Source information:
The record is a 159-nucleotide RNA from Nicotiana tabacum, which matches "U1 spliceosomal RNA" in Rfam. A reference for the family is Charenton et al. (2019), "Mechanism of 5' splice site transfer for human spliceosome activation", Science. The base pairs follow the family's consensus structure, which is taken from published work. The source organism's lineage runs through Eukaryota, Streptophyta, Embryophyta, Pentapetalae and Nicotiana. The family's RNA type in Rfam is spliceosomal small nuclear RNA.
[Rfam]
RNA sequence: AUACUUACGUGGACGGGGUCAAUGGGCGAUCAAUAAGACUCAUGACCUAGGUUGGUGACCUCCAUUGCACUUUGGAGGGGUACUUGCCUGGUCGACCCAAGUGGUCGAGCCUACGUCAUAAUUUGUGCUAGCGGGGGCCUGCGUUCGCGCGGCCCCUAC
Numbered sequence: 001a002u003a004c005u006u007a008c009g010u011g012g013a014c015g016g017g018g019u020c021a022a023u024g025g026g027c028g029a030u031c032a033a034u035a036a037g038a039c040u041c042a043u044g045a046c047c048u049a050g051g052u053u054g055g056u057g058a059c060c061u062c063c064a065u066u067g068c069a070c071u072u073u074g075g076a077g078g079g080g081u082a083c084u085u086g087c088c089u090g091g092u093c094g095a096c097c098c099a100a101g102u103g104g105u106c107g108a109g110c111c112u113a114c115g116u117c118a119u120a121a122u123u124u125g126u127g128c129u130a131g132c133g134g135g136g137g138c139c140u141g142c143g144u145u146c147g148c149g150c151g152g153c154c155c156c157u158a159c
Stems, first nucleotide, its partner, number of pairs: 012117004016048006023042004049089003053086001055083003059079003062075002091111001092109001093107002096104002133157004140151004